[Rfam]
Nucleotides: 293
Base pairs, nucleotide, nucleotide: 001293002292003291004290007287008286009285012246013245014244015243016242017241021061024058025057035049036048037047038046039045070277071276072275073274074273078222079221080220087101088100089099090098091097102117103116104115105114106113118218119217120216121215122214123213124212138204139203247265248264249263250262251261252260253259
Number, partner (000 for none) and nucleotide at each position: 001293u002292c003291c004290g005000c006000g007287a008286c009285a010000a011000u012246c013245u014244c015243g016242c017241a018000c019000c020000u021061g022000g023000g024058g025057c026000a027000c028000a029000c030000a031000u032000a033000c034000a035049g036048u037047g038046u039045a040000u041000u042000c043000a044000u045039u046038a047037c048036a049035c050000a051000u052000u053000a054000c055000a056000u057025g058024c059000a060000a061021c062000g063000g064000g065000a066000a067000g068000g069000u070277c071276u072275g073274a074273g075000a076000c077000a078222g079221g080220c081000a082000u083000c084000u085000u086000a087101u088100c089099c090098u091097c092000u093000a094000g095000c096000a097091g098090g099089g100088g101087a102117c103116u104115u105114g106113c107000a108000u109000a110000a111000u112000c113106g114105c115104a116103a117102g118218a119217c120216g121215g122214g123213g124212g125000a126000a127000c128000c129000a130000g131000a132000a133000a134000a135000a136000u137000g138204c139203c140000a141000g142000u143000c144000c145000g146000g147000g148000c149000g150000c151000g152000u153000a154000a155000g156000c157000c158000u159000a160000g161000g162000a163000u164000u165000g166000u167000c168000c169000u170000g171000a172000a173000u174000u175000u176000c177000a178000a179000u180000g181000g182000c183000a184000u185000a186000g187000g188000u189000g190000u191000u192000g193000c194000g195000u196000c197000u198000g199000g200000a201000u202000a203139g204138g205000u206000u207000g208000g209000a210000a211000a212124c213123c214122c215121c216120c217119g218118u219000a220080g221079c222078u223000a224000g225000c226000a227000a228000u229000u230000u231000g232000a233000g234000u235000u236000c237000a238000a239000u240000c241017u242016g243015c244014g245013a246012g247265u248264u249263g250262a251261c252260g253259a254000u255000u256000g257000a258000a259253u260252c261251g262250u263249c264248a265247a266000a267000a268000c269000u270000c271000a272000a273074u274073u275072c276071a277070g278000a279000c280000u281000a282000a283000u284000c285009u286008g287007u288000u289000g290004c291003g292002g293001g
Nuclear RNase P: a 293-nucleotide RNA from Ceutorhynchus assimilis. The match comes from Rfam's covariance-model search (150 bits). NCBI's taxonomy places the organism under Eukaryota, Hexapoda, Dicondylia, Eumetabola, Ceutorhynchus. Pairs were carried over by alignment from the consensus structure, which is taken from published work. A reference for the family is Frank and Pace (1998), "Ribonuclease P: unity and diversity in a tRNA processing ribozyme", Annu Rev Biochem. Ribonuclease P (RNase P) is a ubiquitous endoribonuclease, found in archaea, bacteria and eukarya as well as chloroplasts and mitochondria.